[Rfam]
RNA sequence: AAGUAGCCCCGACAGUAGCGGCAUCCUUUUUGUUUUUUCUUUAAAAACAAAAAGAUAUAGCGAAUGGCGGGAACUGUA
Numbered sequence: 001a002a003g004u005a006g007c008c009c010c011g012a013c014a015g016u017a018g019c020g021g022c023a024u025c026c027u028u029u030u031u032g033u034u035u036u037u038u039c040u041u042u043a044a045a046a047a048c049a050a051a052a053a054g055a056u057a058u059a060g061c062g063a064a065u066g067g068c069g070g071g072a073a074c075u076g077u078a
Stems, first nucleotide, its partner, number of pairs: 009070003013066002018061002023056003029051008
A member of the RNA family "Flavo-1 RNA" from Flavobacterium branchiophilum, 78 nucleotides long. The source organism's lineage runs through Bacteria, Bacteroidota, Flavobacteriia, Flavobacteriales and Flavobacterium. The family's consensus secondary structure is taken from published work. The family's RNA type in Rfam is small RNA.